The family of this 72-nucleotide RNA is "mir-9/mir-79 microRNA precursor family". A reference for the family is Lagos-Quintana et al. (2001), "Identification of novel genes coding for small expressed RNAs", Science. The family has 214 seed sequences and 5,647 matches in Rfam 15.1. Rfam links the family to the GO terms miRNA-mediated post-transcriptional gene silencing and RISC complex. The base pairs follow the family's consensus structure, which was predicted with RNAalifold. The sequence is in the family's curated seed alignment.

[Rfam]
RNA sequence: AUGUUUCUGUCUUUGGUUAUCUAGCUGUAUGAGUGUUGUGGAGCCAUCAUAAAGCUAGAUAACCGAAAGUAG
Numbered sequence: 001a002u003g004u005u006u007c008u009g010u011c012u013u014u015g016g017u018u019a020u021c022u023a024g025c026u027g028u029a030u031g032a033g034u035g036u037u038g039u040g041g042a043g044c045c046a047u048c049a050u051a052a053a054g055c056u057a058g059a060u061a062a063c064c065g066a067a068a069g070u071a072g
Base pairs, nucleotide, nucleotide: 007072008071009070010069012067013066014065015064016063017062018061019060020059021058022057023056024055025054026053028051029050030049031048032047